[Rfam]
RNA: 6S / SsrS RNA
RNA sequence: GAUUACCUGAGGUGUUUGCCAGUGGGUUAUGUCCCUGAGCCGAUACUUUUAUUUUAUGAAUCGGUUUCUAAUUGUUGGUGUGCAUGCUUAGCUUGACUAAGAAGCCUAAAAAUAGUUAUAACUGAUUCCCUUGAACCGUUGGGUUCAAGGACUGAGACUUGCAGCGGCAUCUCGGGUUCUUC
Numbered sequence: 001g002a003u004u005a006c007c008u009g010a011g012g013u014g015u016u017u018g019c020c021a022g023u024g025g026g027u028u029a030u031g032u033c034c035c036u037g038a039g040c041c042g043a044u045a046c047u048u049u050u051a052u053u054u055u056a057u058g059a060a061u062c063g064g065u066u067u068c069u070a071a072u073u074g075u076u077g078g079u080g081u082g083c084a085u086g087c088u089u090a091g092c093u094u095g096a097c098u099a100a101g102a103a104g105c106c107u108a109a110a111a112a113u114a115g116u117u118a119u120a121a122c123u124g125a126u127u128c129c130c131u132u133g134a135a136c137c138g139u140u141g142g143g144u145u146c147a148a149g150g151a152c153u154g155a156g157a158c159u160u161g162c163a164g165c166g167g168c169a170u171c172u173c174g175g176g177u178u179c180u181u182c
Base pairs, nucleotide, nucleotide: 002180005177006176007175008174009173010172011171012170013169014168015167017166018165019164031152032151033150034149036147037146038145039144040143041142058128059127060126062124063123064122065121066120069118070117071116072115073114074113075112076111082105083104087101088100089099090098091097